[Rfam]
RNA: LOOT RNA
RNA sequence: AGCCUAACCCUUUUUACAAAGGUAUGGCACAAAAAACCUACCACAGGGAUAUAGAGCUCCUCGUCAGAGCACCUGUGGUAGGUUAAUACCCGAAAGGGGUAUAUGUAGCCAGAAAUGGCUAU
Numbered sequence: 001a002g003c004c005u006a007a008c009c010c011u012u013u014u015u016a017c018a019a020a021g022g023u024a025u026g027g028c029a030c031a032a033a034a035a036a037c038c039u040a041c042c043a044c045a046g047g048g049a050u051a052u053a054g055a056g057c058u059c060c061u062c063g064u065c066a067g068a069g070c071a072c073c074u075g076u077g078g079u080a081g082g083u084u085a086a087u088a089c090c091c092g093a094a095a096g097g098g099g100u101a102u103a104u105g106u107a108g109c110c111a112g113a114a115a116u117g118g119c120u121a122u
Stems, first nucleotide, its partner, number of pairs: 002028003009022005037082011056070004084103002089098003105122007